[Rfam]
RNA sequence: AAAUCGUAAGUAAGAAUUGGAGGAAACUAAACAAACGGACAUGAUCUGUAUGCUUUAUUUGUUUAAUUUCCUCCAAUAUCUUAUCUCCGAUUU
Numbered sequence: 001a002a003a004u005c006g007u008a009a010g011u012a013a014g015a016a017u018u019g020g021a022g023g024a025a026a027c028u029a030a031a032c033a034a035a036c037g038g039a040c041a042u043g044a045u046c047u048g049u050a051u052g053c054u055u056u057a058u059u060u061g062u063u064u065a066a067u068u069u070c071c072u073c074c075a076a077u078a079u080c081u082u083a084u085c086u087c088c089g090a091u092u093u
Stems, first nucleotide, its partner, number of pairs: 004090003008086001011083004016077006023070004028065003032061002

A member of the RNA family "MIR2275 microRNA precursor family" from Acer saccharum, 93 nucleotides long. Its family is annotated with RISC complex and miRNA-mediated post-transcriptional gene silencing in the Gene Ontology. The source organism's lineage runs through Eukaryota, Streptophytina, malvids, Acereae and Acer.